[Rfam]
RNA sequence: GGAUGUGAGGGCGAUCUGGCUGCGACAUCUGUCACCCCAUUGAUCGCCAGGGUUGAUCCGGCUGAUCUGGCUGGCUAGGCGGGUGUCCCUUUCCUCCCUCACCGCUCCAUGUGCGUCCCUCUCAAAGCUGCGUGCUCGGUUGAAGAGGACGAUCUUCCCCGAAUAGAGGAGGACCGAUCUUCGAUCAAGGGUAUACGAGUAGCUGUGCUCCCCUGCUAGAACCUCCAAACAAGCUCUCAAGGUCCAUUUGUAGGAGAACGUAGGGUAGUCAAGCUUCCAAGACUCCAGACACAUCCAAAUAGGAGCUGCAUGUCU
Numbered sequence: 001g002g003a004u005g006u007g008a009g010g011g012c013g014a015u016c017u018g019g020c021u022g023c024g025a026c027a028u029c030u031g032u033c034a035c036c037c038c039a040u041u042g043a044u045c046g047c048c049a050g051g052g053u054u055g056a057u058c059c060g061g062c063u064g065a066u067c068u069g070g071c072u073g074g075c076u077a078g079g080c081g082g083g084u085g086u087c088c089c090u091u092u093c094c095u096c097c098c099u100c101a102c103c104g105c106u107c108c109a110u111g112u113g114c115g116u117c118c119c120u121c122u123c124a125a126a127g128c129u130g131c132g133u134g135c136u137c138g139g140u141u142g143a144a145g146a147g148g149a150c151g152a153u154c155u156u157c158c159c160c161g162a163a164u165a166g167a168g169g170a171g172g173a174c175c176g177a178u179c180u181u182c183g184a185u186c187a188a189g190g191g192u193a194u195a196c197g198a199g200u201a202g203c204u205g206u207g208c209u210c211c212c213c214u215g216c217u218a219g220a221a222c223c224u225c226c227a228a229a230c231a232a233g234c235u236c237u238c239a240a241g242g243u244c245c246a247u248u249u250g251u252a253g254g255a256g257a258a259c260g261u262a263g264g265g266u267a268g269u270c271a272a273g274c275u276u277c278c279a280a281g282a283c284u285c286c287a288g289a290c291a292c293a294u295c296c297a298a299a300u301a302g303g304a305g306c307u308g309c310a311u312g313u314c315u
Base pairs, nucleotide, nucleotide: 001108002107003106005102006101007100008099009098010097011096013093014092018090019089024087025086026085027084028083029082030081031080032079033078035074036073037070038069039068042067043066044065045064046062047061048060116172117171118169119168120167121166122139123138125136127135128134140162141161142160147158148157149156202274203273204272208268209267211265212264213263214262215261216260223256224255225254226253229251230250231249232248233247
Dot-bracket structure: (((.(((((((.((...((....((((((((((.(((((..(((((((...........))).)))))))..))...)))))))))).)).))..)))))))...))).......((((((((.(.((.....))).))(((....(((......))).)))...)))).)).............................(((...((.((((((......((((..(((((.............))))).))))...)))))).))...))).........................................

Shown here is a 315-nucleotide RNA from Neotoma lepida, a member of the family "7SK RNA".
The base pairs follow the family's consensus structure, which is taken from published work.
The match comes from Rfam's covariance-model search (327 bits).
On this family, see Blencowe, Curr Biol 2002: "Transcription: surprising role for an elusive small nuclear RNA".
It is annotated as a non-coding RNA gene.
7SK was discovered as an abundant small nuclear RNA in the mid-70s but a possible function has only recently been suggested. Two independent studies have found that 7SK RNA binds the CDK9/cyclin T complex (known as elongation factor P-TEFb). P-TEFb activates transcription by phosphorylating the C-terminal domain of RNA polymerase II. This process is negatively regulated by the 7SK RNP. The secondary structure of 7SK RNA shown here was proposed by Wasserman and Steitz on the basis of chemical modification and enzymatic cleavage experiments. This family contains a number of annotated pseudogenes and 7SK derived repeats. The threshold is artificially high to minimise the pseudogene count.